A member of the RNA family "Selenocysteine transfer RNA" from Burkholderia sp. SRS-W-2-2016, 92 nucleotides long. Rfam links the family to the GO term triplet codon-amino acid adaptor activity. The base pairs follow the family's consensus structure, which is taken from published work. A search with the family's covariance model found it, with a score of 76 bits. The organism belongs to Burkholderia, within Bacteria.

[Rfam]
RNA sequence: GGAAGGCAUUCGUAUCCGGUGGUGCGGCCGGGCUUCAAACCCGGUUGGGGGCGUCAGACGCUCUCAGGAUGGUUCGACUCCAUCUGCCUUCC
Numbered sequence: 001g002g003a004a005g006g007c008a009u010u011c012g013u014a015u016c017c018g019g020u021g022g023u024g025c026g027g028c029c030g031g032g033c034u035u036c037a038a039a040c041c042c043g044g045u046u047g048g049g050g051g052c053g054u055c056a057g058a059c060g061c062u063c064u065c066a067g068g069a070u071g072g073u074u075c076g077a078c079u080c081c082a083u084c085u086g087c088c089u090u091c092c
Stems, first nucleotide, its partner, number of pairs: 001092008011026006027045006047065005069083004